[Rfam]
RNA sequence: GUGGGAUAUGGGGACAUGGUUCCGGUCACCAUUGGGGGAAAGAUAGUUGGCUCUCUGUGCGCCAUUGCUGGAGUCUUGACCAUCGCCCUCCCAGUUCCCGUCAUCGUCUCCAAC
Numbered sequence: 001g002u003g004g005g006a007u008a009u010g011g012g013g014a015c016a017u018g019g020u021u022c023c024g025g026u027c028a029c030c031a032u033u034g035g036g037g038g039a040a041a042g043a044u045a046g047u048u049g050g051c052u053c054u055c056u057g058u059g060c061g062c063c064a065u066u067g068c069u070g071g072a073g074u075c076u077u078g079a080c081c082a083u084c085g086c087c088c089u090c091c092c093a094g095u096u097c098c099c100g101u102c103a104u105c106g107u108c109u110c111c112a113a114c
Base pairs, nucleotide, nucleotide: 001114002113004111005110008107009106010105011104013102014101015100018097019096021094037077038076040074049063050062051061

This 114-nucleotide sequence from Gouania willdenowi belongs to the Rfam family "Potassium channel RNA editing signal". The base pairs follow the family's consensus structure, which is taken from published work. By type it is a cis-regulatory element. On this family, see Bhalla et al., Nat Struct Mol Biol 2004: "Control of human potassium channel inactivation by editing of a small mRNA hairpin".